Notes
The family of this 115-nucleotide sequence from Dendrobium nobile is "U11 spliceosomal RNA".
RNA sequence: UAGGUUGGCUAUGCCACGCACAUCUUUUUAUUGAUGGGCGUUGUAUGGUUAUCAAGACAUAUGGCCGACAUAAUUUAUGGAUCUUAUAGGGUUGGCUUGCCCGGCUAACCCUCUU
Numbered sequence: 001u002a003g004g005u006u007g008g009c010u011a012u013g014c015c016a017c018g019c020a021c022a023u024c025u026u027u028u029u030a031u032u033g034a035u036g037g038g039c040g041u042u043g044u045a046u047g048g049u050u051a052u053c054a055a056g057a058c059a060u061a062u063g064g065c066c067g068a069c070a071u072a073a074u075u076u077a078u079g080g081a082u083c084u085u086a087u088a089g090g091g092u093u094g095g096c097u098u099g100c101c102c103g104g105c106u107a108a109c110c111c112u113c114u115u
Stems, first nucleotide, its partner, number of pairs: 001068001003066002006016004017040003021036004041064007088112008097104002
Dot-bracket structure: (.((.((((...))))(((.((((........)))).)))(((((((..........))))))))).)...................((((((((.((....))))))))))...

A search with the family's covariance model found it, with a score of 42 bits.
Pairs were carried over by alignment from the consensus structure, which is taken from published work.